[Rfam]
RNA sequence: CCGCAAACCGAGGGGUGGCUAAAAGCCUGAGACGCCAAAGCCUCAUCACUGCCUAAAAACAAUGAUGAAGCGCGGGGCGAACCCUUUGAACCUGAUCCGGGCAAUACCGGCGUAGGGAUGGUUGCUGCCCGGCCU
Numbered sequence: 001c002c003g004c005a006a007a008c009c010g011a012g013g014g015g016u017g018g019c020u021a022a023a024a025g026c027c028u029g030a031g032a033c034g035c036c037a038a039a040g041c042c043u044c045a046u047c048a049c050u051g052c053c054u055a056a057a058a059a060c061a062a063u064g065a066u067g068a069a070g071c072g073c074g075g076g077g078c079g080a081a082c083c084c085u086u087u088g089a090a091c092c093u094g095a096u097c098c099g100g101g102c103a104a105u106a107c108c109g110g111c112g113u114a115g116g117g118a119u120g121g122u123u124g125c126u127g128c129c130c131g132g133c134c135u
Stems, first nucleotide, its partner, number of pairs: 006123005011085004016079001017027004034078003091116004097110004

TPP riboswitch aptamer (THI element): a 135-nucleotide RNA from Congregibacter litoralis. It scores 64 bits against the family's covariance model. Taxonomically the source falls in Congregibacter litoralis (Bacteria, Pseudomonadati, Gammaproteobacteria, Cellvibrionales).